A member of the RNA family "Guanidine-II riboswitch aptamer (mini-ykkC)" from Paracoccus salipaludis, 48 nucleotides long. About the family: Simpler in structure and has fewer highly conserved nucleotide positions than the ykkC-yxkD leader. Despite this each of its two stem-loop structures directly bind free guanidine. Therefore, mini-ykkC RNA motif represents a distinct class of guanidine-sensing RNAs. Its crystal structure was also determined.

[Rfam]
RNA sequence: GGCGAAGGACGACCUUCCCCGUCAUGGGCAGCAUUCGGGACGGCCCGC
Numbered sequence: 001g002g003c004g005a006a007g008g009a010c011g012a013c014c015u016u017c018c019c020c021g022u023c024a025u026g027g028g029c030a031g032c033a034u035u036c037g038g039g040a041c042g043g044c045c046c047g048c
Stems, first nucleotide, its partner, number of pairs: 001020002004017005036047004
Dot-bracket structure: ((.(((((....))))).))...............((((....)))).
The family's consensus secondary structure is taken from published work. Gene Ontology term of the family: regulation of gene expression.